[Rfam]
RNA: U5 spliceosomal RNA
Organism: Smittium mucronatum
RNA sequence: AAUCCCAGUUUCUUGUGUAUUAAAGUAUAGAAGCCUCGCCUUUUACUAGACGAUUCCGUGAAUGUGGAAUGGUUUGGGACUAAUAAAAUUUCGGCAACUCUUACUUAGUAGGGUA
Number, nucleotide and partner (000 for none) at each position: 001a000002a000003u079004c078005c077006c076007a000008g000009u069010u068011u067012c066013u000014u064015g063016u062017g000018u060019a059020u000021u000022a000023a000024a000025g000026u000027a000028u000029a055030g054031a000032a000033g051034c000035c049036u048037c000038g000039c000040c000041u000042u000043u000044u000045a000046c000047u000048a036049g035050a000051c033052g000053a000054u030055u029056c000057c000058g000059u019060g018061a000062a016063u015064g014065u000066g012067g011068a010069a009070u000071g000072g000073u000074u000075u000076g006077g005078g004079a003080c000081u000082a000083a000084u000085a000086a000087a000088a000089u000090u000091u000092c000093g000094g000095c000096a000097a114098c113099u112100c111101u110102u000103a000104c000105u000106u000107a000108g000109u000110a101111g100112g099113g098114u097115a000